[Rfam]
RNA sequence: GCGCGGCGCCGGGCCCCUCUGGCGAGAGUGAUGAUGCUCUCGCGAUGUCGGAGCUGCUCC
Dot-bracket structure: .....((.((((.........((((((((......))))))))....)))).))......
RNA: terC RNA
Organism: Devosia sp. LC5